[Rfam]
Nucleotides: 577
Base pairs, nucleotide, nucleotide: 001475002474003472004471005470007469008468009467010466011465012464013463015459016458019422020421021420022419023418024316026314027313028312029311030310031309032308033307034305035304040055041054042053043052064300065299066298067297068296069295070294076124077123078122080120081119082118083117084116088103089102090101091100092099093098106115107114108113126289127288129287130286131285132284135283136282137278138277139276140274142272147186148185149184150183151182152181153162154161155160165178166177167176168175192266193265194264195263197235198234199233200232201231202230203229207224208223211222212221213220238257239256241254242253243252244251245250320374321373322372323371324370325369326368332363333362334361337356338355342351343350344349381412386407387406388405389404390403391402392401428451429450430449431448432447433446434445478576480573483569484568488563489562490561491560493558494557495556498553499552500551501550502549503548506545507544508543509542514538515537516536517535518534519533522531523530
Number, partner (000 for none) and nucleotide at each position: 001475u002474g003472a004471c005470g006000g007469g008468g009467g010466u011465c012464c013463g014000c015459a016458c017000a018000a019422g020421c021420g022419g023418u024316g025000g026314a027313g028312u029311a030310u031309g032308u033307u034305g035304u036000u037000u038000a039000a040055u041054u042053c043052g044000u045000u046000a047000a048000u049000c050000c051000g052043c053042g054041a055040g056000g057000a058000a059000c060000c061000u062000u063000a064300c065299c066298u067297g068296g069295g070294c071000u072000a073000g074000a075000a076124u077123g078122u079000a080120u081119u082118u083117u084116g085000c086000c087000a088103u089102c090101c091100c092099u093098a094000g095000a096000a097000a098093u099092a100091g101090g102089g103088a104000g105000u106115u107114c108113c109000g110000a111000a112000a113108g114107g115106a116084c117083g118082g119081a120080a121000u122078a123077c124076a125000a126289g127288g128000u129287g130286c131285u132284g133000c134000a135283u136282g137278g138277c139276u140274g141000u142272c143000g144000u145000c146000a147186g148185c149184u150183c151182g152181u153162g154161c155160c156000g157000u158000g159000a160155g161154g162153u163000g164000u165178u166177g167176g168175g169000u170000u171000a172000a173000g174000u175168c176167c177166u178165a179000u180000a181152a182151c183150g184149a185148g186147c187000g188000c189000a190000a191000c192266c193265c194264u195263u196000u197235u198234a199233c200232u201231u202230a203229a204000u205000u206000g207224c208223c209000a210000g211222c212221a213220c214000g215000u216000a217000a218000u219000g220213g221212u222211g223208g224207g225000g226000a227000c228000u229203u230202u231201a232200a233199g234198u235197a236000g237000a238257c239256u240000g241254c242253c243252c244251g245250u246000g247000c248000a249000a250245g251244c252243g253242g254241g255000a256239g257238g258000a259000a260000g261000g262000a263195g264194a265193g266192g267000a268000c269000g270000a271000g272142g273000u274140c275000a276139a277138g278137u279000c280000a281000u282136c283135a284132u285131g286130g287129c288127c289126u290000u291000u292000a293000u294070g295069c296068c297067c298066a299065g300064g301000g302000c303000u304035a305034c306000a307033a308032a309031c310030g311029u312028a313027c314026u315000a316024c317000a318000a319000u320374g321373g322372c323371a324370u325369g326368u327000a328000c329000a330000a331000a332363g333362g334361g335000a336000a337356g338355c339000u340000a341000c342351u343350u344349g345000g346000c347000a348000a349344c350343a351342a352000g353000a354000u355338g356337c357000a358000a359000a360000u361334c362333u363332c364000c365000a366000a367000a368326g369325c370324a371323u372322g373321u374320c375000u376000c377000a378000g379000u380000u381412c382000g383000g384000a385000u386407u387406g388405g389404g390403g391402u392401c393000u394000g395000c396000a397000a398000u399000u400000c401392g402391a403390c404389c405388u406387c407386a408000u409000g410000a411000a412381g413000u414000u415000g416000g417000a418023a419022u420021c421020g422019c423000u424000a425000g426000u427000a428451a429450u430449c431448g432447c433446g434445u435000a436000u437000c438000a439000g440000c441000a442000a443000c444000g445434g446433c447432g448431c449430g450429g451428u452000g453000a454000a455000u456000a457000c458016g459015u460000u461000c462000u463013c464012g465011g466010a467009c468008c469007u470005u471004g472003u473000a474002c475001a476000c477000a478576c479000c480573g481000c482000c483569c484568a485000u486000c487000a488563a489562g490561c491560c492000a493558u494557g495556g496000g497000a498553g499552u500551u501550g502549g503548u504000a505000g506545a507544a508543c509542u510000u511000a512000a513000a514538g515537a516536c517535a518534g519533u520000g521000g522531c523530c524000g525000u526000a527000a528000a529000a530523g531522g532000a533519g534518c535517u536516g537515u538514u539000u540000a541000g542509a543508g544507u545506u546000a547000g548503a549502c550501c551500a552499g553498c554000g555000a556495c557494u558493g559000g560491g561490g562489c563488u564000a565000a566000g567000u568484u569483g570000u571000a572000a573480c574000a575000a576478g577000g
The family of this 577-nucleotide part of an RNA from Candidatus Cardinium hertigii is "Bacterial small subunit ribosomal RNA".
Clan: SSU clan.
A search with the family's covariance model found it, with a score of 1506 bits.
The source organism's lineage runs through Bacteria, Pseudomonadati, Bacteroidota, Amoebophilaceae and Candidatus Cardinium.